[Rfam]
RNA sequence: GGUUUAAUUACCCAAGUUUGAGGUAAUUACAUGUUUCAGCUCGUUGCCUCAACAGGCUCUGUGGCUUGAAAAUAAAUUUUGGAAAGCUCUGCCGAUUUGGUGGAGCACU
Numbered sequence: 001g002g003u004u005u006a007a008u009u010a011c012c013c014a015a016g017u018u019u020g021a022g023g024u025a026a027u028u029a030c031a032u033g034u035u036u037c038a039g040c041u042c043g044u045u046g047c048c049u050c051a052a053c054a055g056g057c058u059c060u061g062u063g064g065c066u067u068g069a070a071a072a073u074a075a076a077u078u079u080u081g082g083a084a085a086g087c088u089c090u091g092c093c094g095a096u097u098u099g100g101u102g103g104a105g106c107a108c109u
Stems, first nucleotide, its partner, number of pairs: 003031001005029008034071004039065003086106007
Dot-bracket structure: ..(.((((((((.........)))))))).)..((((.(((.....................)))..))))..............(((((((.......)))))))...

This 109-nucleotide RNA sequence from Anisakis simplex belongs to the Rfam family "SL1 RNA".
The organism belongs to Anisakis simplex complex, within Eukaryota.
The family is grouped with related families in Rfam's "SL clan".
The family's consensus secondary structure is taken from published work.
This family represents the SL1 RNA. SL1 is commonly located in the spacer region between 5S-rRNA genes where it is involved in trans-splicing. Trans-splicing is a form of RNA processing. The acquisition of a spliced leader from a SL RNA is a intra-molecular reaction which precisely joins exons derived from separately transcribed RNAs.